[Rfam]
RNA sequence: GCCGAGCCCAGUAGCGUGGGCUUGUGACCCAUGUGGGGGCAUGCGGGUGGCUGAUGGGUUGGAUCUCGGGUUGCUGGGCGGGUCCGCCGGGCUCAUACCCGGCUCGCCCGUUCCAAGUCGGCGAGUGUUCCACGCGGCCCGAGCGAAGGCUCGUCGGCCGAAUGGAUCCUAGAGUGGAGGGCACAGCGCCAGGCUGGUUUCACAGAGCAGCGAUAACCUCCCGCUCUCGACGGUGGAAGGAUAACGGGCCGGUGCUUGCCGGAUCCAAAUAGCCCACGAUCCGGAUCACUAUUCUACAACCACCUUU
Numbered sequence: 001g002c003c004g005a006g007c008c009c010a011g012u013a014g015c016g017u018g019g020g021c022u023u024g025u026g027a028c029c030c031a032u033g034u035g036g037g038g039g040c041a042u043g044c045g046g047g048u049g050g051c052u053g054a055u056g057g058g059u060u061g062g063a064u065c066u067c068g069g070g071u072u073g074c075u076g077g078g079c080g081g082g083u084c085c086g087c088c089g090g091g092c093u094c095a096u097a098c099c100c101g102g103c104u105c106g107c108c109c110g111u112u113c114c115a116a117g118u119c120g121g122c123g124a125g126u127g128u129u130c131c132a133c134g135c136g137g138c139c140c141g142a143g144c145g146a147a148g149g150c151u152c153g154u155c156g157g158c159c160g161a162a163u164g165g166a167u168c169c170u171a172g173a174g175u176g177g178a179g180g181g182c183a184c185a186g187c188g189c190c191a192g193g194c195u196g197g198u199u200u201c202a203c204a205g206a207g208c209a210g211c212g213a214u215a216a217c218c219u220c221c222c223g224c225u226c227u228c229g230a231c232g233g234u235g236g237a238a239g240g241a242u243a244a245c246g247g248g249c250c251g252g253u254g255c256u257u258g259c260c261g262g263a264u265c266c267a268a269a270u271a272g273c274c275c276a277c278g279a280u281c282c283g284g285a286u287c288a289c290u291a292u293u294c295u296a297c298a299a300c301c302a303c304c305u306u307u
Stems, first nucleotide, its partner, number of pairs: 001040003004023007028037003043307001045305006052298002056294002059291001061289001062287005069281005076275004080266007089257003093254001099252008108240002111238005117231004123226004127168001129166004135160005140153005169174001176221005185214001187212003194205003
The record is a 307-nucleotide RNA from Spirodela intermedia, which matches "Plant signal recognition particle RNA" in Rfam. The literature on the family includes a 2002 paper in Curr Opin Struct Biol by Wild et al., "Towards the structure of the mammalian signal recognition particle". Lineage of the source: Eukaryota > Embryophyta > Euphyllophyta > Magnoliopsida > Spirodela.